[Rfam]
RNA sequence: UGAGCCGGUCAGGCGGCCGCGUCACGGAUCCGUCCGUGCCGAGGAACGUCCGGGCUCCGAAGGGCAGGGUGGUGGCUAACGGCCACCCGGGGUGACCCGCGGGACAGUGCCACAGAGAGCAGACCGCCGGGCUUCGGCCCGGUAAGGGUGAAACGGUGGUGUAAGAGACCACCAGCGUCCCAGGCGACUGGGGCGGCUAGGUAAACCCCACCCGGAGCAAGGUCGGACAGCAUGCGUUCGAGGGCGGCCCGCCCGAGCAUGCGGGUAGACCGCUGGAGGCGACUGGCAACAGUCGUCCUAGAUGGAUGGUCGCCAGCCGCGCGUGGGCAACCGUGCGCGGCGACAGAACCCGGCGUAUCGACCGGCUCAUCCA
Numbered sequence: 001u002g003a004g005c006c007g008g009u010c011a012g013g014c015g016g017c018c019g020c021g022u023c024a025c026g027g028a029u030c031c032g033u034c035c036g037u038g039c040c041g042a043g044g045a046a047c048g049u050c051c052g053g054g055c056u057c058c059g060a061a062g063g064g065c066a067g068g069g070u071g072g073u074g075g076c077u078a079a080c081g082g083c084c085a086c087c088c089g090g091g092g093u094g095a096c097c098c099g100c101g102g103g104a105c106a107g108u109g110c111c112a113c114a115g116a117g118a119g120c121a122g123a124c125c126g127c128c129g130g131g132c133u134u135c136g137g138c139c140c141g142g143u144a145a146g147g148g149u150g151a152a153a154c155g156g157u158g159g160u161g162u163a164a165g166a167g168a169c170c171a172c173c174a175g176c177g178u179c180c181c182a183g184g185c186g187a188c189u190g191g192g193g194c195g196g197c198u199a200g201g202u203a204a205a206c207c208c209c210a211c212c213c214g215g216a217g218c219a220a221g222g223u224c225g226g227a228c229a230g231c232a233u234g235c236g237u238u239c240g241a242g243g244g245c246g247g248c249c250c251g252c253c254c255g256a257g258c259a260u261g262c263g264g265g266u267a268g269a270c271c272g273c274u275g276g277a278g279g280c281g282a283c284u285g286g287c288a289a290c291a292g293u294c295g296u297c298c299u300a301g302a303u304g305g306a307u308g309g310u311c312g313c314c315a316g317c318c319g320c321g322c323g324u325g326g327g328c329a330a331c332c333g334u335g336c337g338c339g340g341c342g343a344c345a346g347a348a349c350c351c352g353g354c355g356u357a358u359c360g361a362c363c364g365g366c367u368c369a370u371c372c373a
Base pairs, nucleotide, nucleotide: 001369002368003367004366005365006364007363008362009361010360011358012314013313014312015311016310017309018308020041021040023038024037025036026035027034028033046356047355048354050353051352052351053350054349055217056216057215058214062250063249064248065247067213068212069211070210071209072086073085074084075083076082087101088099089098090097091096102208103207107206108205109202110201111200124147125146126143127142128141129140130139131138132137155173156172157171158170159169160168175197176195177194178193179192180191181190182189183188221271222270223269224268230262231261232260233259234258235257242254243253244252245251278297279296280295281294282293283292284291285290

The record is a 373-nucleotide sequence from Barrientosiimonas humi, which matches "Bacterial RNase P class A" in Rfam. By type it is a ribozyme.